[Rfam]
RNA: MIR403 microRNA precursor family
Organism: Eutrema salsugineum
RNA sequence: UCAUAUUACAUGUUUUGUGCGUGAAUCUAAUUCGAAGGCUUAUUAUCAUAUCCGAUUUUGUUGUUGUUGGAUUAGAUUCACGCACAAACUCGUAAUCUGUCU
Numbered sequence: 001u002c003a004u005a006u007u008a009c010a011u012g013u014u015u016u017g018u019g020c021g022u023g024a025a026u027c028u029a030a031u032u033c034g035a036a037g038g039c040u041u042a043u044u045a046u047c048a049u050a051u052c053c054g055a056u057u058u059u060g061u062u063g064u065u066g067u068u069g070g071a072u073u074a075g076a077u078u079c080a081c082g083c084a085c086a087a088a089c090u091c092g093u094a095a096u097c098u099g100u101c102u
Stems, first nucleotide, its partner, number of pairs: 002099002005096003012089002015087013029073003033069002